[Rfam]
RNA: Bacterial RNase P class A
Organism: Trichocoleus sp. FACHB-832
RNA sequence: AGAGUAGGCGCAGGUGGUUGCGGACUCGUUCAUACCGAGUCUGAGGAAAGUCCGGACUCCCGAAAGACCAAACUUGCUGGGUAACGCCCAGUGCGGGCGACCGUGAGGAUAGUGCCACAGAAAGAUACCGCCAACCAAUUUUGGAUUUUAGAUUUUAGAUUCAAAAUUGCUUGGUAAGGGUGCAAAGGUGCGGUAAGAGCGCACCAGCAGCGUCGAGAGUCGCUGGCUCGGUAAACCCCGGUUGGGAGCAAGGUAGGAACCACGGUUGGUCUUUUCCCGGUUCCGCUAAUUUAACCGCUUGAGGCAUCUGGUAACAGGUGUCCCAGAUAGAUAACUGCCCUCCUGGCGGCACAGCUGCUAGGUAGAACAGAACCCGGCUUAUGUCCGACUCUCUCC
Numbered sequence: 001a002g003a004g005u006a007g008g009c010g011c012a013g014g015u016g017g018u019u020g021c022g023g024a025c026u027c028g029u030u031c032a033u034a035c036c037g038a039g040u041c042u043g044a045g046g047a048a049a050g051u052c053c054g055g056a057c058u059c060c061c062g063a064a065a066g067a068c069c070a071a072a073c074u075u076g077c078u079g080g081g082u083a084a085c086g087c088c089c090a091g092u093g094c095g096g097g098c099g100a101c102c103g104u105g106a107g108g109a110u111a112g113u114g115c116c117a118c119a120g121a122a123a124g125a126u127a128c129c130g131c132c133a134a135c136c137a138a139u140u141u142u143g144g145a146u147u148u149u150a151g152a153u154u155u156u157a158g159a160u161u162c163a164a165a166a167u168u169g170c171u172u173g174g175u176a177a178g179g180g181u182g183c184a185a186a187g188g189u190g191c192g193g194u195a196a197g198a199g200c201g202c203a204c205c206a207g208c209a210g211c212g213u214c215g216a217g218a219g220u221c222g223c224u225g226g227c228u229c230g231g232u233a234a235a236c237c238c239c240g241g242u243u244g245g246g247a248g249c250a251a252g253g254u255a256g257g258a259a260c261c262a263c264g265g266u267u268g269g270u271c272u273u274u275u276c277c278c279g280g281u282u283c284c285g286c287u288a289a290u291u292u293a294a295c296c297g298c299u300u301g302a303g304g305c306a307u308c309u310g311g312u313a314a315c316a317g318g319u320g321u322c323c324c325a326g327a328u329a330g331a332u333a334a335c336u337g338c339c340c341u342c343c344u345g346g347c348g349g350c351a352c353a354g355c356u357g358c359u360a361g362g363u364a365g366a367a368c369a370g371a372a373c374c375c376g377g378c379u380u381a382u383g384u385c386c387g388a389c390u391c392u393c394u395c396c
Base pairs, nucleotide, nucleotide: 001392002391003390004389005388007386008385010384011383012382013339014338015337016336017335018334019333021043022042023041024040025039026038027037028036048380049379050378052377053376054375055374057248058247059246060245066273067272071243072242073241075240076239077091078090079089080088081087092106093104094103095102096101107238108237112236113235114232115231116230128179129178130175131174132173133172134171136169137168138167139166140165141164142163143162144161145160146159147158148157187205188204189203190202191201192200207227208225209224210223211222212221214219252296253295254294256284257283258282259281260280261279264278265277268274303322304321305320306319307318308317309316310315